[Rfam]
RNA: K10 transport/localisation element (TLS)
RNA sequence: GGCUCGAUUGUAUUUUUAAAUUAAUUCUUAAAAACUACAAAUCGAGCC
Numbered sequence: 001g002g003c004u005c006g007a008u009u010g011u012a013u014u015u016u017u018a019a020a021u022u023a024a025u026u027c028u029u030a031a032a033a034a035c036u037a038c039a040a041a042u043c044g045a046g047c048c
Stems, first nucleotide, its partner, number of pairs: 001048009010038003013034007